Rfam assigns this 96-nucleotide sequence to the family "DUF3800-V RNA".
The base pairs follow the family's consensus structure, which is taken from published work.
RNA sequence: AAGAUGAGCGGUAAGACCGUUGCAGGUUCUUUCGGUGUUCCCUUCCAUAGGUAGGCAAAGCCGAGGGAUUACAAAUCUGCAGGGCACGCUCAUUUU
Numbered sequence: 001a002a003g004a005u006g007a008g009c010g011g012u013a014a015g016a017c018c019g020u021u022g023c024a025g026g027u028u029c030u031u032u033c034g035g036u037g038u039u040c041c042c043u044u045c046c047a048u049a050g051g052u053a054g055g056c057a058a059a060g061c062c063g064a065g066g067g068a069u070u071a072c073a074a075a076u077c078u079g080c081a082g083g084g085c086a087c088g089c090u091c092a093u094u095u096u
Stems, first nucleotide, its partner, number of pairs: 001096006008089002023079006030066007041055003045051002